A member of the RNA family "Tymovirus/Pomovirus/Furovirus tRNA-like 3' UTR element" from Furovirus tritici, 85 nucleotides long. It scores 57 bits against the family's covariance model.
[Rfam]
RNA sequence: AGGAGCGACAGGUAGUCGCGGCUGCUAUGACACAGCAGUUAAGAGGGGUUCAAAUCCCCCCCGAACCGGAGGGUUAUCCGGCCCA
Numbered sequence: 001a002g003g004a005g006c007g008a009c010a011g012g013u014a015g016u017c018g019c020g021g022c023u024g025c026u027a028u029g030a031c032a033c034a035g036c037a038g039u040u041a042a043g044a045g046g047g048g049u050u051c052a053a054a055u056c057c058c059c060c061c062c063g064a065a066c067c068g069g070a071g072g073g074u075u076a077u078c079c080g081g082c083c084c085a
Stems, first nucleotide, its partner, number of pairs: 005019005012051001020040007045059004060072002066081005
About the family: This family represents a tRNA-like structure found in the 3' UTR of Tymoviruses, Pomoviruses and Furovirus. Rfam 15.1 lists 38 matches to the family in 28 species.